[Rfam]
RNA sequence: GCCAAAUGAUGUGAAGUGGAUGGCAUUAGCACUCUAUGUGUAAAGAUGACCUUCAUCUAUCACCCCAUACUGAUGGCU
Numbered sequence: 001g002c003c004a005a006a007u008g009a010u011g012u013g014a015a016g017u018g019g020a021u022g023g024c025a026u027u028a029g030c031a032c033u034c035u036a037u038g039u040g041u042a043a044a045g046a047u048g049a050c051c052u053u054c055a056u057c058u059a060u061c062a063c064c065c066c067a068u069a070c071u072g073a074u075g076g077c078u
Stems, first nucleotide, its partner, number of pairs: 001077004031041002034038001
RNA: Small nucleolar RNA SNORD83
Organism: Pandion haliaetus